About this RNA: The record is a 116-nucleotide sequence from Streptosporangium album, which matches "Actinobacteria sRNA Ms_IGR-7" in Rfam. For this family Rfam cites "Identification of small RNAs in Mycobacterium smegmatis using heterologous Hfq" (Li et al., RNA, 2013). It is annotated as a small RNA. The match comes from Rfam's covariance-model search (53 bits).
[Rfam]
RNA sequence: CGACGUGCCCUCUUGAUUCGGCGGCUGGAAGCGUAGAGAACUCCCAUCCUGCCAGGUCAGAGGGCAUCGUCAUGUCUACGGUCCAGCCCUCACCUGAUAACGCUCGGUGGAUUCAG
Numbered sequence: 001c002g003a004c005g006u007g008c009c010c011u012c013u014u015g016a017u018u019c020g021g022c023g024g025c026u027g028g029a030a031g032c033g034u035a036g037a038g039a040a041c042u043c044c045c046a047u048c049c050u051g052c053c054a055g056g057u058c059a060g061a062g063g064g065c066a067u068c069g070u071c072a073u074g075u076c077u078a079c080g081g082u083c084c085a086g087c088c089c090u091c092a093c094c095u096g097a098u099a100a101c102g103c104u105c106g107g108u109g110g111a112u113u114c115a116g
Stems, first nucleotide, its partner, number of pairs: 002071004006066007014059003018055001020053003023049002026046001028044001030042002096113003101109002